[Rfam]
The family of this 304-nucleotide RNA sequence from Dioscorea zingiberensis is "Plant signal recognition particle RNA". The family's consensus secondary structure is taken from published work. The family's RNA type in Rfam is non-coding RNA gene.

RNA sequence: GCCGAGUCUUGUAACGUAGGCUUAUAACUCAAGUAGGGGCAUUAAGAUGGUUUGAAUGAUUGUUCCGGCCCAUUGGGUCUGGUGCGUGUGGACUUUGAUUCUGGUUUGCGCAGUUCAAGUUGAGAGUUGGGUCAUGUGGUUCGGGCGAAGGCUUGGGCCAUGUCACCUUUAGACUGGAGGGCACUGUGUGUCAGGCUGGCUUCACAGAGCUGCGAAAGCCUCCCGCUCUCAACGGUGGAUGGACAACGGACUGGUUUUCAUCUUUUUUAUAUAAAAAAAGGAGUUUUAAUUGAUGAGUAUUUGA
Dot-bracket structure: (((((((((........))))))....((......)))))...........((.(((.((((((..(.(.(.((...(..((.(.(..(.((........((((((((..(.(((((.(((((((((.((((.(((((((((((((....))))))))))))).)))).......(((((....(.(((......(((......)))....))).)..))))).)))))))))..)))))).....))))))))...))).).).)).......)..)).).).)..))).)))....))).))